[Rfam]
RNA sequence: CACUUCUCAAUGAGCUCCUUCCUGCCAAAAAAUCCAUGGCAGUCUAUGGAUUCGCACGAGAAGGAGAGUAACUGUGCAGUACUGGCAAACUUGCAAUGGGACUCUGUCCAUUGUGUUGAGCCACUGCUGUUCUACAUGU
Numbered sequence: 001c002a003c004u005u006c007u008c009a010a011u012g013a014g015c016u017c018c019u020u021c022c023u024g025c026c027a028a029a030a031a032a033u034c035c036a037u038g039g040c041a042g043u044c045u046a047u048g049g050a051u052u053c054g055c056a057c058g059a060g061a062a063g064g065a066g067a068g069u070a071a072c073u074g075u076g077c078a079g080u081a082c083u084g085g086c087a088a089a090c091u092u093g094c095a096a097u098g099g100g101a102c103u104c105u106g107u108c109c110a111u112u113g114u115g116u117u118g119a120g121c122c123a124c125u126g127c128u129g130u131u132c133u134a135c136a137u138g139u
Stems, first nucleotide, its partner, number of pairs: 003063006014055002016050003022042005074132001076130004094113006